[Rfam]
Nucleotides: 108
Base pairs, nucleotide, nucleotide: 032085033084034083035082036081037080038079039078040077045054046053059074061072
Number, partner (000 for none) and nucleotide at each position: 001000u002000g003000a004000a005000u006000u007000g008000g009000u010000a011000g012000c013000u014000c015000a016000g017000g018000g019000c020000c021000g022000a023000a024000a025000g026000u027000a028000c029000u030000g031000g032085c033084g034083a035082c036081a037080g038079a039078c040077c041000a042000g043000a044000a045054a046053c047000g048000g049000g050000a051000a052000u053046g054045u055000u056000g057000u058000a059074u060000c061072g062000a063000u064000g065000u066000g067000u068000g069000a070000a071000g072061c073000a074059a075000c076000g077040g078039g079038u080037c081036u082035g083034u084033c085032g086000c087000c088000g089000a090000g091000c092000c093000u094000a095000c096000u097000g098000g099000u100000u101000g102000g103000u104000g105000g106000g107000g108000g
The family of this 108-nucleotide sequence from Chania multitudinisentens is "Insertion sequence IS1222 ribosomal frameshifting element". The match comes from Rfam's covariance-model search (58 bits). The source organism's lineage runs through Bacteria, Pseudomonadati, Gammaproteobacteria, Chania and Chania multitudinisentens. This family represents the insertion sequence IS1222 ribosomal frameshifting element. The element stimulates frameshifting which is known to be required for transposition. The family has 5 seed sequences and 89 matches in Rfam 15.1.